[Rfam]
Nucleotides: 128
Stems, first nucleotide, its partner, number of pairs: 002059001004057004014047002017044004023039001026037002073120004079114003087106003091102004
Number, partner (000 for none) and nucleotide at each position: 001000u002059g003000a004057u005056u006055g007054u008000u009000u010000c011000a012000a013000a014047g015046a016000a017044g018043g019042c020041u021000g022000a023039u024000g025000g026037g027036g028000c029000u030000g031000u032000g033000a034000a035000a036027c037026c038000a039023g040000a041020a042019g043018c044017u045000c046015u047014u048000a049000a050000c051000g052000c053000u054007g055006u056005g057004a058000c059002c060000g061000a062000a063000g064000a065000c066000u067000g068000a069000a070000c071000u072000u073120c074119u075118c076117c077000g078000u079114a080113g081112g082000a083000u084000g085000c086000u087106g088105c089104g090000u091102c092101a093100c094099u095000c096000a097000g098000c099094a100093g101092u102091g103000c104089u105088g106087u107000g108000u109000u110000u111000c112081c113080c114079u115000g116000a117076g118075g119074a120073g121000u122000u123000a124000c125000a126000a127000a128000u
Description:
Shown here is a 128-nucleotide RNA from Camelus dromedarius, a member of the family "Small nucleolar RNA SNORA25". Rfam describes the family as follows. ACA25 is a member of the H/ACA class of snoRNA that guide the sites of modification of uridines to pseudouridines. The match comes from Rfam's covariance-model search (103 bits). It is annotated as an H/ACA-box small nucleolar RNA. The family has 30 seed sequences and 1,129 matches in Rfam 15.1.